The family of this 74-nucleotide sequence from Petromyzon marinus is "mir-148/mir-152 microRNA precursor family". Rfam 15.1 lists 1,272 matches to the family in 609 species.

Nucleotides: 074
Base pairs, nucleotide, nucleotide: 004070005069006068007067008066009065010064011063012062013061014060015059016058022052023051024050025049028048029047030046031045
Number, partner (000 for none) and nucleotide at each position: 001000u002000c003000g004070a005069g006068c007067c008066g009065a010064a011063g012062u013061u014060c015059u016058g017000u018000g019000a020000u021000a022052c023051a024050c025049u026000u027000g028048g029047g030046c031045u032000g033000u034000g035000c036000u037000g038000u039000c040000a041000a042000g043000g044000a045031a046030g047029u048028c049025a050024g051023u052022g053000c054000a055000a056000a057000a058016c059015a060014g061013a062012a063011c064010u065009u066008u067007g068006g069005u070004u071000g072000g073000a074000g